[Rfam]
This 278-nucleotide sequence from Mesocricetus auratus belongs to the Rfam family "Mason-Pfizer monkey virus packaging signal".
RNA sequence: UGGCGCCCAACGUGGUGACCCAGGUACAAGGGCUUCAGUGAAGAAUGUCGCUUAGGAGAGCCGGCCAUAUCAAAAAGAAAAGAAACAGAGGUAGUUGGAAGACGAGAGCCUGCCGCAGCAACAAAGACCUCGGUAAGUGAGUGACGAUAUGGGACAAGACAUGAGUCAACAUGAAUUGUUUGUUGAAGGCCUCAAGAAGGCACUUAAGGCCCAAGUGAUUAGGCUUAAAACACAGGAUUUGUGAAAGUCUUUUGUCUUUAUUAAGGAAGUUUGUCCCU
Numbered sequence: 001u002g003g004c005g006c007c008c009a010a011c012g013u014g015g016u017g018a019c020c021c022a023g024g025u026a027c028a029a030g031g032g033c034u035u036c037a038g039u040g041a042a043g044a045a046u047g048u049c050g051c052u053u054a055g056g057a058g059a060g061c062c063g064g065c066c067a068u069a070u071c072a073a074a075a076a077g078a079a080a081a082g083a084a085a086c087a088g089a090g091g092u093a094g095u096u097g098g099a100a101g102a103c104g105a106g107a108g109c110c111u112g113c114c115g116c117a118g119c120a121a122c123a124a125a126g127a128c129c130u131c132g133g134u135a136a137g138u139g140a141g142u143g144a145c146g147a148u149a150u151g152g153g154a155c156a157a158g159a160c161a162u163g164a165g166u167c168a169a170c171a172u173g174a175a176u177u178g179u180u181u182g183u184u185g186a187a188g189g190c191c192u193c194a195a196g197a198a199g200g201c202a203c204u205u206a207a208g209g210c211c212c213a214a215g216u217g218a219u220u221a222g223g224c225u226u227a228a229a230a231c232a233c234a235g236g237a238u239u240u241g242u243g244a245a246a247g248u249c250u251u252u253u254g255u256c257u258u259u260a261u262u263a264a265g266g267a268a269g270u271u272u273g274u275c276c277c278u
Stems, first nucleotide, its partner, number of pairs: 006032003012027003037048001038046002086133001088131003095125001096123002101116001103115002138156002142153001163204001165201003212254004217249003222240002225237002263278001265276003
About the family: This family represents a group of sequences that are related to the Mason-Pfizer monkey virus (MPMV) packaging signal. The packaging signal is located in the 5' UTR and is required for specific RNA encapsidation. On this family, see Mustafa et al., Virus Res 2004: "Mutational analysis of the predicted secondary RNA structure of the Mason-Pfizer monkey virus packaging signal".